[Rfam]
Nucleotides: 088
Base pairs, nucleotide, nucleotide: 001027002026003025004023005022006021007020008019010018011017056084057083058082059080060079061078063076065075066074067073
Number, partner (000 for none) and nucleotide at each position: 001027u002026g003025g004023g005022c006021a007020g008019u009000a010018u011017c012000g013000u014000u015000a016000c017011g018010a019008a020007c021006u022005g023004c024000a025003c026002c027001a028000a029000c030000a031000c032000a033000u034000a035000a036000a037000g038000g039000c040000u041000a042000a043000u044000c045000g046000g047000a048000u049000a050000g051000a052000u053000g054000a055000u056084c057083u058082g059080c060079c061078u062000u063076g064000a065075u066074c067073c068000a069000u070000g071000u072000u073067g074066g075065a076063c077000u078061a079060g080059g081000a082058c083057a084056g085000a086000g087000g088000g
Shown here is an 88-nucleotide sequence from Halalkalibacter oceani, a member of the family "pan motif". Lineage of the source: Bacteria > Bacillati > Bacilli > Bacillaceae > Halalkalibacter. The match comes from Rfam's covariance-model search (64 bits). Rfam classes the family as a cis-regulatory element. The base pairs follow the family's consensus structure, which is taken from published work.